Shown here is a 141-nucleotide RNA sequence from Nakamurella multipartita, a member of the family "SAM riboswitch aptamer (S box leader)". Rfam links the family to the GO term regulation of gene expression. The organism belongs to Nakamurella multipartita, within Bacteria. Rfam describes the family as follows. The SAM riboswitch is found upstream of a number of genes which code for proteins involved in methionine or cysteine biosynthesis in Gram-positive bacteria.
RNA sequence: ACCUCAUCCAGAGGGGCAGAGGGACACGGCCCGAUGAAGCCCCGGCAACCACUGUUGAUGAUCGUCAUCUCCUGACCGCGCGUCCGGGGCCGAUCGACAGCAGGUGCCACUUCCGUCCCGCUUCGGCGGGGAAGAUGAGCA
Numbered sequence: 001a002c003c004u005c006a007u008c009c010a011g012a013g014g015g016g017c018a019g020a021g022g023g024a025c026a027c028g029g030c031c032c033g034a035u036g037a038a039g040c041c042c043c044g045g046c047a048a049c050c051a052c053u054g055u056u057g058a059u060g061a062u063c064g065u066c067a068u069c070u071c072c073u074g075a076c077c078g079c080g081c082g083u084c085c086g087g088g089g090c091c092g093a094u095c096g097a098c099a100g101c102a103g104g105u106g107c108c109a110c111u112u113c114c115g116u117c118c119c120g121c122u123u124c125g126g127c128g129g130g131g132a133a134g135a136u137g138a139g140c141a
Stems, first nucleotide, its partner, number of pairs: 003139006013043005021032003026116004044108004049104002052100008112133001117130005